Annotation
Rfam assigns this 349-nucleotide RNA sequence from Spiribacter sp. 2438 to the family "Bacterial RNase P class A". The match comes from Rfam's covariance-model search (331 bits). Taxonomically the source falls in Spiribacter (Bacteria, Pseudomonadati, Chromatiales, Ectothiorhodospiraceae). The family's consensus secondary structure is taken from published work.
Nucleotides: 349
Stems, first nucleotide, its partner, number of pairs: 001345010011334001012314007020033005038332003042329005047219004054251004059215005064078005079093001080091004094210002099208002101204003116150002118146003123141002126138001158176006177199001178197004183192003223271004233262006242256005278297008
Number, partner (000 for none) and nucleotide at each position: 001345g002344a003343a004342g005341u006340c007339g008338g009337c010336c011334g012314g013313g014312c015311a016310g017309u018308c019000g020033c021032u022031g023030c024029a025000g026000u027000a028000u029024u030023g031022c032021g033020g034000a035000g036000g037000a038332a039331a040330g041000u042329c043328c044327g045326g046325g047219c048218u049217c050216c051000a052000c053000u054251g055250g056249g057248c058000a059215g060214g061213g062212u063211g064078c065077c066076a067075g068074g069000u070000a071000a072000c073000c074068c075067c076066u077065g078064g079093g080091c081090g082089g083088c084000g085000u086000g087000a088083g089082c090081c091080g092000a093079c094210g095209g096000a097000a098000a099208g100207u101204g102203c103202c104000g105000c106000a107000g108000a109000a110000a111000a112000c113000a114000g115000a116150c117149c118146g119145c120144c121000g122000a123141u124140g125000g126138c127000c128000a129000u130000c131000u132000c133000u134000g135000c136000a137000u138126g139000g140124c141123a142000c143000a144120g145119g146118u147000a148000a149117g150116g151000g152000u153000g154000a155000a156000a157000u158176g159175g160174u161173g162172c163171g164000g165000u166000a167000a168000g169000a170000g171163c172162g173161c174160a175159c176158c177199g178197c179196g180195c181194g182000g183192c184191u185190g186000g187000u188000a189000a190185c191184a192183g193000g194181c195180g196179u197178g198000g199177c200000a201000c202103g203102g204101u205000a206000a207100a208099c209095c210094c211063c212062a213061c214060c215059c216050g217049g218048a219047g220000c221000a222000a223271g224270a225269c226268c227000a228000a229000a230000u231000a232000g233262g234261g235260g236259a237258g238257c239000a240000g241000a242256c243255g244254c245253g246252u247000g248057g249056c250055c251054c252246g253245c254244g255243c256242g257238g258237c259236u260235c261234c262233c263000g264000g265000g266000u267000a268226g269225g270224u271223c272000g273000c274000u275000c276000a277000a278297g279296g280295u281294g282293c283292a284291u285290g286000g287000c288000g289000a290285c291284a292283u293282g294281c295280a296279u297278c298000a299000c300000a301000g302000a303000u304000g305000a306000a307000u308018g309017g310016c311015u312014g313013u314012c315000c316000u317000c318000g319000a320000c321000a322000g323000a324000a325046c326045c327044c328043g329042g330040c331039u332038u333000a334011c335000a336010g337009g338008c339007c340006g341005g342004c343003u344002u345001c346000c347000c348000u349000u